[Rfam]
RNA sequence: CCUGGCCCCAAAGACAUUGCAGGUGUGGCUGCUGUGUCACAUGUAUGUCACUAGGUGGCAGAGAGGAGAGAGGCUGUGACUACACUCAGUUUUCUGACCUGUGAACAUCUGAAUGAUUAAUUUACUAACACU
Numbered sequence: 001c002c003u004g005g006c007c008c009c010a011a012a013g014a015c016a017u018u019g020c021a022g023g024u025g026u027g028g029c030u031g032c033u034g035u036g037u038c039a040c041a042u043g044u045a046u047g048u049c050a051c052u053a054g055g056u057g058g059c060a061g062a063g064a065g066g067a068g069a070g071a072g073g074c075u076g077u078g079a080c081u082a083c084a085c086u087c088a089g090u091u092u093u094c095u096g097a098c099c100u101g102u103g104a105a106c107a108u109c110u111g112a113a114u115g116a117u118u119a120a121u122u123u124a125c126u127a128a129c130a131c132u
Stems, first nucleotide, its partner, number of pairs: 002061003006057001007055002010052001013049003019046001021044001024041006068129001071126002076121002083115002086112004090107001092105003
This 132-nucleotide RNA from Mus musculus belongs to the Rfam family "Small nucleolar RNA SNORA17". It scores 108 bits against the family's covariance model. A reference for the family is Ofengand and Bakin (1997), "Mapping to nucleotide resolution of pseudouridine residues in large subunit ribosomal RNAs from representative eukaryotes, prokaryotes, archaebacteria, mitochondria and chloroplasts", J Mol Biol. About the family: snoRNA ACA 17 belongs to the H/ACA family of snoRNAs and is predicted to guide pseudouridylation of the 28S rRNA at positions U4659 and U4598. It shares the same host gene together with ACA43.